The record is a 100-nucleotide RNA sequence from Bombilactobacillus mellis, which matches "23S methyl RNA motif" in Rfam. The family's RNA type in Rfam is cis-regulatory element.

RNA sequence: AAUUCGGGGCCUUUUAUCAGAUGCUGGUUUGAUAAAAGGAUUCGAUAUCUGCGUACUAACGUAUUUUCUUGCUGCGAGAGCCGAGAGAAUGCGUUUUUUU
Numbered sequence: 001a002a003u004u005c006g007g008g009g010c011c012u013u014u015u016a017u018c019a020g021a022u023g024c025u026g027g028u029u030u031g032a033u034a035a036a037a038g039g040a041u042u043c044g045a046u047a048u049c050u051g052c053g054u055a056c057u058a059a060c061g062u063a064u065u066u067u068c069u070u071g072c073u074g075c076g077a078g079a080g081c082c083g084a085g086a087g088a089a090u091g092c093g094u095u096u097u098u099u100u
Base pairs, nucleotide, nucleotide: 004045005044006043007042008041010039011038012037013036014035015034016033017032018031019030058095059094060093061092062091063090064089065088066087067086068085069084070083071082074081075080
Dot-bracket structure: ...(((((.((((((((((..........)))))))))).)))))............((((((((((((((..((....)))))))))))))))).....
The match comes from Rfam's covariance-model search (56 bits). Its family is annotated with regulation of gene expression in the Gene Ontology.